The record is a 55-nucleotide sequence from Streptomyces sp. AcH 505, which matches "L17-Actino-Proteobacteria ribosomal protein leader" in Rfam. It is annotated as a cis-regulatory leader. Pairs were carried over by alignment from the consensus structure, which is taken from published work.
RNA sequence: CCCGGGGCGGCCGCUCCGGGGGAACUGACAUCGGUACCUGAUACGGCCGGUGCAG
Numbered sequence: 001c002c003c004g005g006g007g008c009g010g011c012c013g014c015u016c017c018g019g020g021g022g023a024a025c026u027g028a029c030a031u032c033g034g035u036a037c038c039u040g041a042u043a044c045g046g047c048c049g050g051u052g053c054a055g
Base pairs, nucleotide, nucleotide: 001020002019003018004017005016006015007014008013025055026054027053029052030051031050032049033048034047035046